[Rfam]
RNA sequence: UGCAAUCCCAUUAAAGGGGCAGUUCCCCACCCAGAAGCUACUUUAUCAUAUUUUGAAUUC
Numbered sequence: 001u002g003c004a005a006u007c008c009c010a011u012u013a014a015a016g017g018g019g020c021a022g023u024u025c026c027c028c029a030c031c032c033a034g035a036a037g038c039u040a041c042u043u044u045a046u047c048a049u050a051u052u053u054u055g056a057a058u059u060c
Stems, first nucleotide, its partner, number of pairs: 016044004021039004026034001
This 60-nucleotide RNA sequence from Lathyrus oleraceus belongs to the Rfam family "Plastid-psbN 5UTR RNA". Plastid psbN is a non-coding RNA (ncRNA) recognised in plastids. It scores 62 bits against the family's covariance model. A reference for the family is Richter et al. (2023), "Retrograde signaling in plants: A critical review focusing on the GUN pathway and beyond", Plant Commun. The family's consensus secondary structure was predicted with LocARNA. By type it is a cis-regulatory element. Rfam 15.1 lists 2,345 matches to the family in 397 species.